[Rfam]
The family of this 93-nucleotide RNA sequence from Devosia sp. Root685 is "Repression of heat shock gene expression (ROSE) element". Its family is annotated with response to temperature stimulus and regulation of translation in the Gene Ontology. The source organism's lineage runs through Bacteria, Pseudomonadati, Pseudomonadota, Devosiaceae and Devosia. A reference for the family is Balsiger et al. (2004), "Replicon-specific regulation of small heat shock genes in Agrobacterium tumefaciens", J Bacteriol.

RNA sequence: CCGACGGCCUGAGUGGCGUCGGCAAAGUCUGGGAGGCGUUCUCUUGGGCGCCUCUCGUAUCCAUGUUGCUCAAGGAGAAUAUGGCUAUGAGAA
Number, nucleotide and partner (000 for none) at each position: 001c022002c021003g020004a019005c018006g017007g000008c016009c015010u000011g000012a000013g000014u000015g009016g008017c006018g005019u004020c003021g002022g001023c000024a000025a000026a000027g000028u000029c000030u000031g000032g000033g000034a053035g052036g051037c050038g049039u048040u047041c046042u000043c000044u000045u000046g041047g040048g039049c038050g037051c036052c035053u034054c091055u090056c089057g088058u087059a086060u000061c084062c083063a082064u081065g080066u079067u078068g000069c077070u076071c075072a000073a000074g000075g071076a070077g069078a067079a066080u065081a064082u063083g062084g061085c000086u059087a058088u057089g056090a055091g054092a000093a000